[Rfam]
RNA sequence: UAUCGCCGAGGGAAUGAAGUUCUCCCGAAGCACCGGGGCAUAAGCCCCGUGCCUGAACCGCUUAUAAAAGCUGAUGACUUCUGCAUUAUU
Number, nucleotide and partner (000 for none) at each position: 001u000002a000003u000004c000005g000006c000007c000008g000009a000010g026011g025012g024013a023014a000015u000016g081017a080018a079019g078020u077021u076022c000023u013024c012025c011026c010027g000028a000029a000030g000031c000032a000033c000034c000035g000036g000037g000038g000039c000040a000041u000042a000043a000044g000045c000046c000047c000048c000049g000050u000051g000052c000053c000054u000055g000056a000057a000058c000059c000060g071061c070062u069063u068064a000065u000066a000067a000068a063069a062070g061071c060072u000073g000074a000075u000076g021077a020078c019079u018080u017081c016082u000083g000084c000085a000086u000087u000088a000089u000090u000
RNA: Fluoride riboswitch aptamer (crcB RNA motif)
Organism: Anaerotruncus sp. CAG:390